[Rfam]
RNA sequence: CGAAUAAAUGACUAGUUCCUUCAUAUAUUUUCGAUAAUAUGGAUCGAAAGUUUCUACCAAAUCACCGUAAAUGAUUGGGCUAUGGAGGCAGGUUCUUUGUGA
Numbered sequence: 001c002g003a004a005u006a007a008a009u010g011a012c013u014a015g016u017u018c019c020u021u022c023a024u025a026u027a028u029u030u031u032c033g034a035u036a037a038u039a040u041g042g043a044u045c046g047a048a049a050g051u052u053u054c055u056a057c058c059a060a061a062u063c064a065c066c067g068u069a070a071a072u073g074a075u076u077g078g079g080c081u082a083u084g085g086a087g088g089c090a091g092g093u094u095c096u097u098u099g100u101g102a
Stems, first nucleotide, its partner, number of pairs: 018088008029049007058078001060076005

Background: Rfam assigns this 102-nucleotide RNA from Bacillaceae bacterium SAS-127 to the family "Purine riboswitch aptamer". The base pairs follow the family's consensus structure, which is taken from published work. The source organism's lineage runs through Bacteria, Bacillati, Bacillota, Bacilli and Bacillaceae.